[Rfam]
Nucleotides: 298
Base pairs, nucleotide, nucleotide: 006035007034010031011030012029013027016023017022041076043074045072047069048068049067051065052061053060087255088254089253092250095247101241102240104237108233109232111121112120113119123143124142125141126140127139129138130137131136144163145162147160148159149158150157166192171188172187174185175184198229199228200227201226202225203224204223205222206221207220209218210217211216256287257286258285259284260283261282262281263276264275265274
Number, partner (000 for none) and nucleotide at each position: 001000a002000u003000u004000u005000u006035u007034u008000c009000u010031u011030g012029u013027g014000c015000c016023u017022g018000a019000u020000c021000g022017c023016a024000a025000a026000u027013c028000u029012g030011u031010g032000u033000u034007a035006a036000c037000u038000c039000u040000u041076u042000a043074g044000g045072c046000a047069u048068u049067c050000c051065u052061u053060c054000g055000a056000a057000c058000a059000u060053g061052a062000a063000g064000c065051a066000a067049g068048a069047a070000c071000a072045g073000a074043c075000a076041a077000c078000u079000a080000u081000g082000a083000c084000a085000g086000c087255c088254c089253u090000u091000c092250u093000a094000c095247g096000a097000g098000u099000g100000a101241u102240u103000a104237g105000c106000c107000u108233u109232a110000u111121c112120g113119u114000g115000a116000u117000u118000a119113g120112c121111g122000u123143g124142g125141u126140g127139g128000u129138g130137a131136u132000u133000a134000u135000u136131a137130u138129c139127c140126c141125a142124c143123c144163g145162u146000g147160c148159g149158g150157g151000g152000c153000u154000g155000c156000a157150c158149u159148u160147g161000g162145a163144c164000g165000a166192g167000g168000a169000a170000a171188g172187g173000c174185u175184u176000a177000a178000a179000a180000a181000u182000c183000a184175a185174g186000c187172c188171u189000u190000a191000a192166c193000g194000a195000a196000c197000u198229a199228a200227g201226a202225c203224c204223c205222c206221c207220g208000c209218a210217c211216c212000g213000a214000a215000a216211g217210g218209u219000c220207c221206g222205g223204g224203g225202g226201u227200u228199u229198u230000u231000u232109u233108a234000u235000c236000a237104c238000c239000a240102a241101a242000a243000a244000a245000c246000g247095c248000a249000a250092a251000u252000c253089a254088g255087g256287a257286a258285c259284a260283g261282a262281a263276a264275u265274g266000a267000a268000u269000a270000u271000c272000a273000g274265c275264a276263u277000a278000a279000a280000a281262u282261u283260c284259u285258g286257u287256u288000u289000c290000u291000c292000a293000c294000g295000a296000u297000a298000u
Rfam assigns this 298-nucleotide sequence from Kosakonia cowanii to the family "Soft rot Enterobacteriaceae Rev 39 5'UTR". On this family, see Kwenda et al., BMC Genomics 2016: "Discovery and profiling of small RNAs responsive to stress conditions in the plant pathogen Pectobacterium atrosepticum". From bacteria cultured under starvation conditions.